[Rfam]
RNA sequence: AGAGGCCCUCUGCGGCUGGGGUGGAAUGCUUGCCUUGUUGCUGCAGCGAUGAGGCAAGCAUUCUGCCAGGCUGCUCAUGCUGCCCGC
Numbered sequence: 001a002g003a004g005g006c007c008c009u010c011u012g013c014g015g016c017u018g019g020g021g022u023g024g025a026a027u028g029c030u031u032g033c034c035u036u037g038u039u040g041c042u043g044c045a046g047c048g049a050u051g052a053g054g055c056a057a058g059c060a061u062u063c064u065g066c067c068a069g070g071c072u073g074c075u076c077a078u079g080c081u082g083c084c085c086g087c
Stems, first nucleotide, its partner, number of pairs: 004084003012074006020067014037050005
Dot-bracket structure: ...(((.....((((((..((((((((((((((...(((((....)))))...)))))))))))))).)))))).......)))...
mir-9195 microRNA precursor family: an 87-nucleotide RNA sequence from Myotis lucifugus.
A search with the family's covariance model found it, with a score of 93 bits.
The family's consensus secondary structure was predicted with RNAalifold.